[Rfam]
RNA sequence: GUACUUACCUGGCAGGAGGGAUACCACGAUGGUGUAGGCAGCUUUCCCGAGGCGAGGCUUAUCCAUUAUACCCCAGAUAGGCUGACCCCUGUGAUUUCCACAAAUGUCGGAAACUGAACUGCAUAAUGUGUGAUAGUGUGGAACCGUUUUGUGCUUUCCCUG
Numbered sequence: 001g002u003a004c005u006u007a008c009c010u011g012g013c014a015g016g017a018g019g020g021a022u023a024c025c026a027c028g029a030u031g032g033u034g035u036a037g038g039c040a041g042c043u044u045u046c047c048c049g050a051g052g053c054g055a056g057g058c059u060u061a062u063c064c065a066u067u068a069u070a071c072c073c074c075a076g077a078u079a080g081g082c083u084g085a086c087c088c089c090u091g092u093g094a095u096u097u098c099c100a101c102a103a104a105u106g107u108c109g110g111a112a113a114c115u116g117a118a119c120u121g122c123a124u125a126a127u128g129u130g131u132g133a134u135a136g137u138g139u140g141g142a143a144c145c146g147u148u149u150u151g152u153g154c155u156u157u158c159c160c161u162g
Base pairs, nucleotide, nucleotide: 012122013121014120015119016048018046019045020044021043024041027038049090051088052087054086056083057082058081060079061078062077063076092117094115095113096112097111099109138161140159141158142157143155145153146152
Rfam assigns this 162-nucleotide RNA sequence from Colobus angolensis to the family "U1 spliceosomal RNA". Rfam describes the family as follows. U1 is a small nuclear RNA (snRNA) component of the spliceosome (involved in pre-mRNA splicing). Its 5' end forms complementary base pairs with the 5' splice junction, thus defining the 5' donor site of an intron. There are significant differences in sequence and secondary structure between metazoan and yeast U1 snRNAs, the latter being much longer (568 nucleotides as compared to 164 nucleotides in human). Nevertheless, secondary structure predictions suggest that all U1 snRNAs share a 'common core' consisting of helices I, II, the proximal region of III, and IV. This family does not contain the larger yeast sequences. It is annotated as a spliceosomal small nuclear RNA. The base pairs follow the family's consensus structure, which is taken from published work. The organism belongs to Colobus angolensis, within Eukaryota. Its Rfam clan is "U1 clan".